The family of this 67-nucleotide RNA sequence from Kurthia massiliensis is "RAGATH-18 RNA". The source organism's lineage runs through Bacteria, Bacillota, Bacilli, Caryophanaceae and Kurthia. It is annotated as a small RNA.

Nucleotides: 067
Base pairs, nucleotide, nucleotide: 001065002064003063004062005061009054010053011052012051013050022049023048024047030042031041
Number, partner (000 for none) and nucleotide at each position: 001065c002064c003063u004062g005061u006000g007000g008000a009054g010053a011052g012051u013050g014000a015000c016000a017000c018000g019000a020000a021000a022049c023048g024047u025000u026000a027000g028000u029000a030042g031041g032000g033000a034000g035000c036000a037000a038000g039000u040000g041031c042030c043000g044000a045000g046000g047024a048023c049022g050013c051012a052011u053010u054009c055000u056000g057000a058000g059000a060000a061005g062004c063003a064002g065001g066000a067000a